The family of this 192-nucleotide RNA sequence from Nyssa sinensis is "MIR530 microRNA precursor family". The base pairs follow the family's consensus structure, which was predicted with WAR.
RNA sequence: GCCAAGAUGUUGCCUUUAUCUGCAUUUGCACCUGCACCUUAUUUUCUUCUCGAUUUCAGUUUUCAAGUCCAAAGAUUGAAAAUAUAGCAUUACAAGUGUAUUUAUGUACCCCUCACACAUAUAUAUGUGUGUGUGUGGAAAUGAGACAGGGAAAGAGGUGCAGGUGUAGAUGCAGGUGAAUGCCUUUUUGGA
Numbered sequence: 001g002c003c004a005a006g007a008u009g010u011u012g013c014c015u016u017u018a019u020c021u022g023c024a025u026u027u028g029c030a031c032c033u034g035c036a037c038c039u040u041a042u043u044u045u046c047u048u049c050u051c052g053a054u055u056u057c058a059g060u061u062u063u064c065a066a067g068u069c070c071a072a073a074g075a076u077u078g079a080a081a082a083u084a085u086a087g088c089a090u091u092a093c094a095a096g097u098g099u100a101u102u103u104a105u106g107u108a109c110c111c112c113u114c115a116c117a118c119a120u121a122u123a124u125a126u127g128u129g130u131g132u133g134u135g136u137g138g139a140a141a142u143g144a145g146a147c148a149g150g151g152a153a154a155g156a157g158g159u160g161c162a163g164g165u166g167u168a169g170a171u172g173c174a175g176g177u178g179a180a181u182g183c184c185u186u187u188u189u190g191g192a
Stems, first nucleotide, its partner, number of pairs: 002191006009184001012183002015180025055100001057098002060095002063092001
Its family is annotated with miRNA-mediated post-transcriptional gene silencing and RISC complex in the Gene Ontology. The match comes from Rfam's covariance-model search (89 bits).